[Rfam]
RNA sequence: CUUAAUGAACAAGAAAACAAAGCGUACCUUCUCUCCUGAGUUUAAGCAGGAAUGCGCCCAACUUAUCGUUGAUAAAGGUUACUCAUACCGGGAAGCCAGUGAAGCUAUGAGUGUUGGUUCCUC
Numbered sequence: 001c002u003u004a005a006u007g008a009a010c011a012a013g014a015a016a017a018c019a020a021a022g023c024g025u026a027c028c029u030u031c032u033c034u035c036c037u038g039a040g041u042u043u044a045a046g047c048a049g050g051a052a053u054g055c056g057c058c059c060a061a062c063u064u065a066u067c068g069u070u071g072a073u074a075a076a077g078g079u080u081a082c083u084c085a086u087a088c089c090g091g092g093a094a095g096c097c098a099g100u101g102a103a104g105c106u107a108u109g110a111g112u113g114u115u116g117g118u119u120c121c122u123c
Base pairs, nucleotide, nucleotide: 007120008119009118010117024057025056027054029051030050031049032048035046037044038043061100062099063098066094069091070090071089073087074086077083078082105116107114108113
Rfam assigns this 123-nucleotide RNA from Escherichia coli to the family "isrC Hfq binding RNA".
The family has 16 seed sequences and 35 matches in Rfam 15.1.
The family's consensus secondary structure was predicted with WAR.
A reference for the family is Padalon-Brauch et al. (2008), "Small RNAs encoded within genetic islands of Salmonella typhimurium show host-induced expression and role in virulence", Nucleic Acids Res.
Rfam classes the family as a small RNA.
NCBI's taxonomy places the organism under Bacteria, Pseudomonadota, Gammaproteobacteria, Enterobacterales, Escherichia coli.